[Rfam]
RNA sequence: AUAGAUAAAGACGUCAUUUUGUUUCUAUCUUAAGAAGUUAAUCCCCAAUUCAAUCAAAAUAUUGUUUUCUCUCUCUCUCUCCAUAAAACAAAUAGUAUUUUUGAUCUAACUUCUCAAGCAGAAUAGAACAAAACUUAAUUGUCUUUGUUUGGAUAUGAUAACAACUGAUUGUAUCAGUUGAAAAAACUCGGAGCAUUCCGAGUUUUUU
Number, nucleotide and partner (000 for none) at each position: 001a000002u151003a150004g149005a148006u147007a146008a145009a144010g143011a142012c141013g000014u000015c000016a000017u133018u132019u131020u130021g129022u128023u000024u127025c126026u000027a000028u122029c118030u117031u116032a000033a114034g113035a112036a111037g110038u109039u108040a107041a000042u000043c000044c000045c000046c000047a000048a000049u000050u000051c000052a000053a105054u104055c103056a102057a101058a100059a099060u097061a096062u095063u094064g093065u092066u091067u090068u000069c000070u000071c000072u000073c000074u000075c000076u000077c000078u000079c000080u000081c000082c000083a000084u000085a000086a000087a000088a000089c000090a067091a066092a065093u064094a063095g062096u061097a060098u000099u059100u058101u057102u056103g055104a054105u053106c000107u040108a039109a038110c037111u036112u035113c034114u033115c000116a031117a030118g029119c000120a000121g000122a028123a000124u000125a000126g025127a024128a022129c021130a020131a019132a018133a017134c000135u000136u000137a000138a000139u000140u000141g012142u011143c010144u009145u008146u007147g006148u005149u004150u003151g002152g000153a000154u000155a000156u000157g000158a000159u000160a000161a000162c000163a000164a178165c177166u176167g175168a174169u173170u000171g000172u000173a169174u168175c167176a166177g165178u164179u000180g000181a000182a000183a206184a205185a204186a203187c202188u201189c200190g199191g198192a000193g000194c000195a000196u000197u000198c191199c190200g189201a188202g187203u186204u185205u184206u183207u000208u000

Annotation:
Rfam assigns this 208-nucleotide RNA sequence from Streptococcus uberis to the family "FasX small RNA". It is one of the family's seed sequences. The base pairs follow the family's consensus structure.